Shown here is a 106-nucleotide sequence from Muribaculaceae bacterium Isolate-114, a member of the family "Bacteroidales small SRP". It is annotated as a non-coding RNA gene. It scores 99 bits against the family's covariance model. A reference for the family is Ryan et al. (2020), "A high-resolution transcriptome map identifies small RNA regulation of metabolism in the gut microbe Bacteroides thetaiotaomicron", Nat Commun. Its Rfam clan is "SRP clan". Pairs were carried over by alignment from the consensus structure, which is taken from published work.
RNA sequence: UUGCAGCGGGUGAGUCCUUCACGACCAGCUCCCCGUAAAUCCCCCAGGUCUUGACCGAAGCAAGGGUAGCGGGUUGAGCGGUGCGAUGGAGUAAGCUCGCCCGCCU
Number, nucleotide and partner (000 for none) at each position: 001u000002u000003g000004c000005a000006g000007c000008g102009g101010g100011u099012g098013a097014g096015u095016c000017c091018u090019u089020c088021a087022c085023g084024a082025c081026c000027a000028g000029c000030u000031c000032c000033c000034c000035g000036u000037a000038a000039a000040u000041c000042c000043c000044c000045c000046a000047g000048g000049u000050c000051u000052u000053g000054a000055c000056c000057g000058a000059a000060g000061c000062a000063a000064g000065g000066g000067u000068a000069g000070c000071g000072g000073g000074u000075u000076g000077a000078g000079c000080g000081g025082u024083g000084c023085g022086a000087u021088g020089g019090a018091g017092u000093a000094a000095g015096c014097u013098c012099g011100c010101c009102c008103g000104c000105c000106u000